[Rfam]
The record is a 104-nucleotide RNA sequence from Psychromonas sp. B3M02, which matches "t44 RNA" in Rfam.
Rfam's curators write: This family consists of a number of bacterial RNA genes of between 135 and 170 bases in length.
It is annotated as a small RNA.
On this family, see Tjaden et al., Nucleic Acids Res 2002: "Transcriptome analysis of Escherichia coli using high-density oligonucleotide probe arrays".

RNA sequence: AGAUUAUUAUUUAAAUAACACACACGCAUCGACACGUCACUCGGGGUGCCUUUUUCUGUUUAAGAAAUAAAUGGUCGAGUGUAUGGGAUGUGUGGAGGCCUAAC
Numbered sequence: 001a002g003a004u005u006a007u008u009a010u011u012u013a014a015a016u017a018a019c020a021c022a023c024a025c026g027c028a029u030c031g032a033c034a035c036g037u038c039a040c041u042c043g044g045g046g047u048g049c050c051u052u053u054u055u056c057u058g059u060u061u062a063a064g065a066a067a068u069a070a071a072u073g074g075u076c077g078a079g080u081g082u083a084u085g086g087g088a089u090g091u092g093u094g095g096a097g098g099c100c101u102a103a104c
Stems, first nucleotide, its partner, number of pairs: 023094008035085003040079004048075003052071003